[Rfam]
RNA sequence: UUAACUCAAAAUUGUACGGAGUAGGAAUGUUUACUUAAGUUUGCCGCUAGAGGCGCUGUUCCAACUGCAUACAACUUUGACUUA
Numbered sequence: 001u002u003a004a005c006u007c008a009a010a011a012u013u014g015u016a017c018g019g020a021g022u023a024g025g026a027a028u029g030u031u032u033a034c035u036u037a038a039g040u041u042u043g044c045c046g047c048u049a050g051a052g053g054c055g056c057u058g059u060u061c062c063a064a065c066u067g068c069a070u071a072c073a074a075c076u077u078u079g080a081c082u083u084a
Stems, first nucleotide, its partner, number of pairs: 008078003012074005018068001020066003024062006034052003039047002
A member of the RNA family "mir-2807 microRNA precursor family" from Bombyx mori, 84 nucleotides long. Rfam 15.1 lists 5,120 matches to the family in 8 species. The match comes from Rfam's covariance-model search (76 bits).